[Rfam]
RNA sequence: GCGCCGGGACGACCCGGCGCCUUUGCACAUCCGGGGACGGCCCCA
Numbered sequence: 001g002c003g004c005c006g007g008g009a010c011g012a013c014c015c016g017g018c019g020c021c022u023u024u025g026c027a028c029a030u031c032c033g034g035g036g037a038c039g040g041c042c043c044c045a
Base pairs, nucleotide, nucleotide: 001020002019003018004017005016006015007014008013033044034043035042036041
Annotation
Guanidine-II riboswitch aptamer (mini-ykkC): a 45-nucleotide RNA from Luteimonas aestuarii. A search with the family's covariance model found it, with a score of 46 bits. Rfam describes the family as follows. Simpler in structure and has fewer highly conserved nucleotide positions than the ykkC-yxkD leader. Despite this each of its two stem-loop structures directly bind free guanidine. Therefore, mini-ykkC RNA motif represents a distinct class of guanidine-sensing RNAs. Its crystal structure was also determined. The base pairs follow the family's consensus structure, which is taken from published work.